RNA: Bacterial large subunit ribosomal RNA, nucleotides 1653 to 2011
RNA sequence: CGAGACAACUCGGGAGAAGGAACUCGGCAAAUUAACCCCGUAACUUCGGGAUAAGGGGAGCCUCCGGUCGUGAGUACGGACAGUACGGAGCGUCUGGAGGUCGCAGGGAAACGGCAGAAGCGACUGUUUACCAAAAACACAGGGCCAUGCUAACACGCAAGUGGACGUAUAUGGUCUGACACGUGCCCGGUGCCGGAAGGUUAACAGGAGGGGUCAGCGCAAGCGAAGCCCUGAAUCGAAGCCCCGGUAAACGGCGGCCGUAACUAUAACGGUCCUAAGGUAGCGAAAUUCCUUGUCGGGUAAGUUCCGACCUGCACGAAUCGUGUAACGACUUCUGCACUGUCUCCUCCCGGGACUCG
Numbered sequence: 001c002g003a004g005a006c007a008a009c010u011c012g013g014g015a016g017a018a019g020g021a022a023c024u025c026g027g028c029a030a031a032u033u034a035a036c037c038c039c040g041u042a043a044c045u046u047c048g049g050g051a052u053a054a055g056g057g058g059a060g061c062c063u064c065c066g067g068u069c070g071u072g073a074g075u076a077c078g079g080a081c082a083g084u085a086c087g088g089a090g091c092g093u094c095u096g097g098a099g100g101u102c103g104c105a106g107g108g109a110a111a112c113g114g115c116a117g118a119a120g121c122g123a124c125u126g127u128u129u130a131c132c133a134a135a136a137a138c139a140c141a142g143g144g145c146c147a148u149g150c151u152a153a154c155a156c157g158c159a160a161g162u163g164g165a166c167g168u169a170u171a172u173g174g175u176c177u178g179a180c181a182c183g184u185g186c187c188c189g190g191u192g193c194c195g196g197a198a199g200g201u202u203a204a205c206a207g208g209a210g211g212g213g214u215c216a217g218c219g220c221a222a223g224c225g226a227a228g229c230c231c232u233g234a235a236u237c238g239a240a241g242c243c244c245c246g247g248u249a250a251a252c253g254g255c256g257g258c259c260g261u262a263a264c265u266a267u268a269a270c271g272g273u274c275c276u277a278a279g280g281u282a283g284c285g286a287a288a289u290u291c292c293u294u295g296u297c298g299g300g301u302a303a304g305u306u307c308c309g310a311c312c313u314g315c316a317c318g319a320a321u322c323g324u325g326u327a328a329c330g331a332c333u334u335c336u337g338c339a340c341u342g343u344c345u346c347c348u349c350c351c352g353g354g355a356c357u358c359g
Base pairs, nucleotide, nucleotide: 001359002358003357004356009354010353011352012351013350014349015348016347018345019344020343036058037057038056039055044049060101061100062099063098064097065096079094080093081092084089102106114338115337116336117335118334119333120332121330122329125139126138127137142177143176144175145174146173147172148171149170150167154163155162156161180325181324182323183322185255186254187253190252191251192248193247194246195245196244199243200242201241206236210232211231212230213229214228217224218223256274257273258272259271260270261269275279285312295311296310297309298308299307300306